[Rfam]
This 86-nucleotide sequence from Salisediminibacterium beveridgei belongs to the Rfam family "c-di-GMP-I riboswitch aptamer".

RNA sequence: CAUUGACAAAGGCACACUACCUGAAAGGGUGGGUCGCAAAGCACCAGGGUCUAAGGUUAUUCAACUAUGAUCGCCUUGCUACCGGA
Numbered sequence: 001c002a003u004u005g006a007c008a009a010a011g012g013c014a015c016a017c018u019a020c021c022u023g024a025a026a027g028g029g030u031g032g033g034u035c036g037c038a039a040a041g042c043a044c045c046a047g048g049g050u051c052u053a054a055g056g057u058u059a060u061u062c063a064a065c066u067a068u069g070a071u072c073g074c075c076u077u078g079c080u081a082c083c084g085g086a
Stems, first nucleotide, its partner, number of pairs: 012037002017032006040080004046076003049071003056065003

Rfam links the family to the GO term cyclic-di-GMP binding.